[Rfam]
RNA sequence: AAUCCAAAGCAGGAGCACCCGCUUCUCACCUGUAUGAUGCAUGUGUGUUGUCUUCAGGUAUCUAUGUAUUAUCCAUAAUGAAAGUAUGUAUUUAUGGAAUAGAAUGCGGGCGCAAUGUGCCCGCAUUUUUUGCUUUGG
Number, nucleotide and partner (000 for none) at each position: 001a000002a000003u000004c000005c000006a000007a000008a000009g000010c000011a026012g025013g024014a023015g022016c021017a000018c000019c000020c000021g016022c015023u014024u013025c012026u011027c000028a059029c058030c057031u000032g000033u000034a000035u000036g052037a051038u050039g048040c047041a000042u000043g000044u000045g000046u000047g040048u039049u000050g038051u037052c036053u000054u000055c000056a000057g030058g029059u028060a000061u000062c000063u000064a000065u000066g000067u000068a000069u000070u000071a000072u000073c000074c000075a000076u000077a000078a000079u000080g000081a000082a000083a000084g000085u000086a000087u000088g000089u000090a000091u000092u000093u000094a000095u000096g000097g000098a000099a000100u000101a000102g000103a000104a000105u125106g124107c123108g122109g121110g120111c119112g118113c117114a000115a000116u000117g113118u112119g111120c110121c109122c108123g107124c106125a105126u000127u000128u000129u000130u000131u000132g000133c000134u000135u000136u000137g000138g000
Background: A member of the RNA family "Ribosomal protein L20 leader" from Aneurinibacillus migulanus, 138 nucleotides long. Rfam's curators write: This family is a putative r-protein leader autoregulatory structure found in B. subtilis and other low-GC Gram-positive bacteria. It is located in the 5' untranslated regions of mRNAs encoding initiation factor 3 followed by ribosomal proteins L35 and L20 (infC-rpmI-rplT). A Rho-independent transcription terminator structure that is probably involved in regulation is included at the 3' end. On this family, see Zengel and Lindahl, Prog Nucleic Acid Res Mol Biol 1994: "Diverse mechanisms for regulating ribosomal protein synthesis in Escherichia coli". The match comes from Rfam's covariance-model search (63 bits). NCBI's taxonomy places the organism under Bacteria, Bacillati, Caryophanales, Paenibacillaceae, Aneurinibacillus. Rfam classes the family as a cis-regulatory leader.